[Rfam]
RNA: TPP riboswitch aptamer (THI element)
RNA sequence: GCCGGCGCCAAGGGGUGAUGCUGCAUAUAAUGCGGCAUCUGAGAUGUCUUAUGACAAACCCUUUGAACCUGAUCCGGCUUAUACCGGCGUAGGAAUGGGCCAAAUUUUGAUC
Numbered sequence: 001g002c003c004g005g006c007g008c009c010a011a012g013g014g015g016u017g018a019u020g021c022u023g024c025a026u027a028u029a030a031u032g033c034g035g036c037a038u039c040u041g042a043g044a045u046g047u048c049u050u051a052u053g054a055c056a057a058a059c060c061c062u063u064u065g066a067a068c069c070u071g072a073u074c075c076g077g078c079u080u081a082u083a084c085c086g087g088c089g090u091a092g093g094a095a096u097g098g099g100c101c102a103a104a105u106u107u108u109g110a111u112c
Stems, first nucleotide, its partner, number of pairs: 008098003011062004016056001017039009046055003068093004074087004